RNA sequence: GCUUGACAAAGGCAAACCACCCGAAAGGGUGCGACGCAAAGCCAACGGCCUCACCCCCUGGAAUCAGGGAAAGGCGGCAGGGCUGCCGAG
Numbered sequence: 001g002c003u004u005g006a007c008a009a010a011g012g013c014a015a016a017c018c019a020c021c022c023g024a025a026a027g028g029g030u031g032c033g034a035c036g037c038a039a040a041g042c043c044a045a046c047g048g049c050c051u052c053a054c055c056c057c058c059u060g061g062a063a064u065c066a067g068g069g070a071a072a073g074g075c076g077g078c079a080g081g082g083c084u085g086c087c088g089a090g
Stems, first nucleotide, its partner, number of pairs: 012037002018031005040084004047078001048075003055069003